[Rfam]
RNA sequence: UUGCGCAAGUGAUGUUUUAAUCGGCAAUAUUAGCAAUCCCCUGCCACUGCCUCAGGCCUAUUCUUUUAAACAGAAUCACUGCCCGGACACAGCGUCCAGCGACUCGCCAAAUCAGGCCAGUUGCGGCCUCCCACCCAACAGGGUGUGCCAGGCCCCCGGGCUACAUACUGUCCAGAAGACGGCAUGAGGUGAGCCGACGUCAAAAGCGUUGCGCCAGGACGAAGCAUCUCAAGGGGACCCU
Numbered sequence: 001u002u003g004c005g006c007a008a009g010u011g012a013u014g015u016u017u018u019a020a021u022c023g024g025c026a027a028u029a030u031u032a033g034c035a036a037u038c039c040c041c042u043g044c045c046a047c048u049g050c051c052u053c054a055g056g057c058c059u060a061u062u063c064u065u066u067u068a069a070a071c072a073g074a075a076u077c078a079c080u081g082c083c084c085g086g087a088c089a090c091a092g093c094g095u096c097c098a099g100c101g102a103c104u105c106g107c108c109a110a111a112u113c114a115g116g117c118c119a120g121u122u123g124c125g126g127c128c129u130c131c132c133a134c135c136c137a138a139c140a141g142g143g144u145g146u147g148c149c150a151g152g153c154c155c156c157c158g159g160g161c162u163a164c165a166u167a168c169u170g171u172c173c174a175g176a177a178g179a180c181g182g183c184a185u186g187a188g189g190u191g192a193g194c195c196g197a198c199g200u201c202a203a204a205a206g207c208g209u210u211g212c213g214c215c216a217g218g219a220c221g222a223a224g225c226a227u228c229u230c231a232a233g234g235g236g237a238c239c240c241u
Base pairs, nucleotide, nucleotide: 001012002011003010004009043057044056045055076192077191078190079189080188081161082160083159084158085097086096087095088094099124100123101122102121103120106117107116108115125154126153127152128151129150132145133144134143135142136141164186165185166184168182169181170180171179172178193214194213195211196210197209198208199207200206232241233240234239
Shown here is a 241-nucleotide RNA from Pseudomonas syringae group genomosp. 3, a member of the family "Pseudomonas sRNA P24". By type it is a non-coding RNA gene. The base pairs follow the family's consensus structure, which was predicted with RNAalifold. This small RNA (sRNA) was computationally identified in the genome of the opportunistic pathogen Pseudomonas aeruginosa and its expression verified by Northern blot analysis. Lineage of the source: Bacteria > Gammaproteobacteria > Pseudomonadales > Pseudomonadaceae > Pseudomonas syringae pv. tomato. Rfam's curators put it in the seed alignment. On this family, see Livny et al., Nucleic Acids Res 2006: "Identification of 17 Pseudomonas aeruginosa sRNAs and prediction of sRNA-encoding genes in 10 diverse pathogens using the bioinformatic tool sRNAPredict2".